[Rfam]
RNA sequence: AGGCCUGGAAAGAGAAGCAGGGUCUAAUCCGUAGCUUCUGUGGCAGCUGUUGAUCAGCCCUUGCCUCUCUCUUCCUCUCAG
Numbered sequence: 001a002g003g004c005c006u007g008g009a010a011a012g013a014g015a016a017g018c019a020g021g022g023u024c025u026a027a028u029c030c031g032u033a034g035c036u037u038c039u040g041u042g043g044c045a046g047c048u049g050u051u052g053a054u055c056a057g058c059c060c061u062u063g064c065c066u067c068u069c070u071c072u073u074c075c076u077c078u079c080a081g
Stems, first nucleotide, its partner, number of pairs: 008073002011070005017064004022059001024057002027054003032049004
The family of this 81-nucleotide RNA from Cnephaeus nilssonii is "mir-574 microRNA precursor family". A reference for the family is Nielsen et al. (2010), "MicroRNA identity and abundance in porcine skeletal muscles determined by deep sequencing", Anim Genet. Rfam 15.1 lists 4,084 matches to the family in 7 species.